A member of the RNA family "c-di-AMP riboswitch aptamer (ydaO/yuaA leader)" from Kurthia sibirica, 143 nucleotides long. Lineage of the source: Bacteria > Bacillati > Bacillota > Bacilli > Kurthia. The pairing is the family consensus, mapped onto this sequence.
RNA sequence: UUUUUUAAAUCGCUGAAGUAAAAACGCGGGGAACCCAAUAUUUUUGAAAUCGAUGUAUUUCUAGGGGUGAAUCCAUUUCUAUGGUAGGGUAACUCUUUAUCCGAAUCCGACAGCUAACCUCGUAAGCGUUACAGAGAAGAAUA
Dot-bracket structure: ..........((((...((....))((((((....(...........................)(((.....((((....))))..((((........))))...))).........)))))).))))...............
The match comes from Rfam's covariance-model search (98 bits).